mir-181 microRNA precursor family: an 87-nucleotide RNA from Anolis carolinensis.
It is one of the family's seed sequences.
Pairs were carried over by alignment from the consensus structure, which was predicted with PFOLD.
A reference for the family is Ambros (2001), "microRNAs: tiny regulators with great potential", Cell.

RNA sequence: GGUUGCUUCAGUGAACAUUCAACGCUGUCGGUGAGUUUGGGAUUAAAGUGAAAACCAUCGACCGUUGAUUGUACCCUCCAGCUAACC
Numbered sequence: 001g002g003u004u005g006c007u008u009c010a011g012u013g014a015a016c017a018u019u020c021a022a023c024g025c026u027g028u029c030g031g032u033g034a035g036u037u038u039g040g041g042a043u044u045a046a047a048g049u050g051a052a053a054a055c056c057a058u059c060g061a062c063c064g065u066u067g068a069u070u071g072u073a074c075c076c077u078c079c080a081g082c083u084a085a086c087c
Base pairs, nucleotide, nucleotide: 001087002086003085005082006081007080016071017070019068020067021066022065023064024063027062028061029060030059031058032057033056035055036054037053038052